[Rfam]
A member of the RNA family "L13-Bacteroidia ribosomal protein leader", 72 nucleotides long.
The base pairs follow the family's consensus structure, which is taken from published work.
Rfam classes the family as a cis-regulatory leader.

RNA sequence: AGGAGAGCGAAAUCUCCUCUGCGCUGUGUGUUAAUAGUUGGGCUUUUGGUCGAGCCUAAUGGUUAGUGAAUC
Numbered sequence: 001a002g003g004a005g006a007g008c009g010a011a012a013u014c015u016c017c018u019c020u021g022c023g024c025u026g027u028g029u030g031u032u033a034a035u036a037g038u039u040g041g042g043c044u045u046u047u048g049g050u051c052g053a054g055c056c057u058a059a060u061g062g063u064u065a066g067u068g069a070a071u072c
Stems, first nucleotide, its partner, number of pairs: 001018006031066005037060009